[Rfam]
Nucleotides: 107
Stems, first nucleotide, its partner, number of pairs: 008034001009031002013026001015024003036058002040053005082105001084103003090096002
Number, partner (000 for none) and nucleotide at each position: 001000g002000g003000u004000u005000u006000a007000a008034a009031c010030c011000u012000a013026g014000u015024a016023c017022c018000a019000c020000a021000a022017g023016g024015u025000a026013c027000u028000a029000a030010g031009g032000a033000g034008u035000c036058c037057a038000u039000g040053c041052a042051g043050u044049c045000a046000u047000c048000u049044g050043g051042c052041u053040g054000u055000g056000u057037u058036g059000g060000a061000a062000c063000a064000c065000c066000u067000a068000a069000a070000u071000u072000u073000u074000u075000g076000g077000a078000u079000a080000g081000c082105u083000c084103u085102u086101c087000c088000g089000g090096g091095g092000u093000a094000u095091c096090c097000g098000g099000g100000a101086g102085g103084g104000c105082a106000a107000a
This 107-nucleotide RNA sequence from Haemonchus placei belongs to the Rfam family "SL2 RNA". On this family, see Dassanayake et al., Gene 2001: "Trans-spliced leader RNA, 5S-rRNA genes and novel variant orphan spliced-leader of the lymphatic filarial nematode Wuchereria bancrofti, and a sensitive polymerase chain reaction based detection assay". This family represents SL2 RNA. SL2 RNA is involved in trans splicing in lower eukaryotes. Trans-splicing is a form of RNA processing. The acquisition of a spliced leader from a SL RNA is a intra-molecular reaction which precisely joins exons derived from separately transcribed RNAs. Approximately 25% of C. elegans genes are organised into polycistronic transcription units and the presence of SL2 on an mRNA is an indication the the gene is in an operon. The family is grouped with related families in Rfam's "SL clan". Lineage of the source: Eukaryota > Ecdysozoa > Rhabditida > Rhabditomorpha > Haemonchus.